[Rfam]
RNA sequence: UGGCCGUGAUGAACAUCUACAAUUGUGUACCAGAGACAGUGUCUGUGACGGUAACACAUCCCUCUAAGAAGUUCUGAGCUA
Numbered sequence: 001u002g003g004c005c006g007u008g009a010u011g012a013a014c015a016u017c018u019a020c021a022a023u024u025g026u027g028u029a030c031c032a033g034a035g036a037c038a039g040u041g042u043c044u045g046u047g048a049c050g051g052u053a054a055c056a057c058a059u060c061c062c063u064c065u066a067a068g069a070a071g072u073u074c075u076g077a078g079c080u081a
Base pairs, nucleotide, nucleotide: 001081002080003079004078
RNA: Small nucleolar RNA U61